[Rfam]
The record is an 84-nucleotide RNA from Paenibacillus flagellatus, which matches "c-di-GMP-I riboswitch aptamer" in Rfam.
The match comes from Rfam's covariance-model search (78 bits).
NCBI's taxonomy places the organism under Bacteria, Bacilli, Caryophanales, Paenibacillaceae, Paenibacillus.
RNA sequence: CCAUCGACAAGGCAAACCUAUCGAAAGGUAGGGACGCAAAGCUUCAGGCCUAACGGAACUUCCUACGGCGGCUGGGUUACCGAA
Numbered sequence: 001c002c003a004u005c006g007a008c009a010a011g012g013c014a015a016a017c018c019u020a021u022c023g024a025a026a027g028g029u030a031g032g033g034a035c036g037c038a039a040a041g042c043u044u045c046a047g048g049c050c051u052a053a054c055g056g057a058a059c060u061u062c063c064u065a066c067g068g069c070g071g072c073u074g075g076g077u078u079a080c081c082g083a084a
Base pairs, nucleotide, nucleotide: 012037013036017032018031019030020029021028022027040078041077042076043075045074046073047072048069049068050067055063056062057061